RNA: Small nucleolar RNA snoR110
RNA sequence: GCUACAUUUAGUGCCCAUCCUUGUCUUUUCAAAGUUGUCUCCUUUUUUUUUUAUAUUAAGGACAUUACUGUUUUACUUGGUGGCAGAAACUU
Dot-bracket structure: ...........(((.((((...((........(((..(.(((((.............))))).)..))).....))..))))))).......